[Rfam]
RNA sequence: CGGCCGACACCGCCGAGUCGCCGCCCCAGGCGAUCCGGGGACCCAGGUACGCCGGGGUGAAUCCACAGCCACUGUGGUAGGGCGUCCCCUUCCGCCCGAACCCGUCAGCUAACCCGGUAGGCGGUUCGUCAGAAGGAGU
Numbered sequence: 001c002g003g004c005c006g007a008c009a010c011c012g013c014c015g016a017g018u019c020g021c022c023g024c025c026c027c028a029g030g031c032g033a034u035c036c037g038g039g040g041a042c043c044c045a046g047g048u049a050c051g052c053c054g055g056g057g058u059g060a061a062u063c064c065a066c067a068g069c070c071a072c073u074g075u076g077g078u079a080g081g082g083c084g085u086c087c088c089c090u091u092c093c094g095c096c097c098g099a100a101c102c103c104g105u106c107a108g109c110u111a112a113c114c115c116g117g118u119a120g121g122c123g124g125u126u127c128g129u130c131a132g133a134a135g136g137a138g139u
Base pairs, nucleotide, nucleotide: 011123012122013121014120018033019032020031021030022029035117036116037115038114039113044054055103056102057101063077064076065075066074080097081096082095083094
RNA: c-di-AMP riboswitch aptamer (ydaO/yuaA leader)
Organism: Micromonospora yangpuensis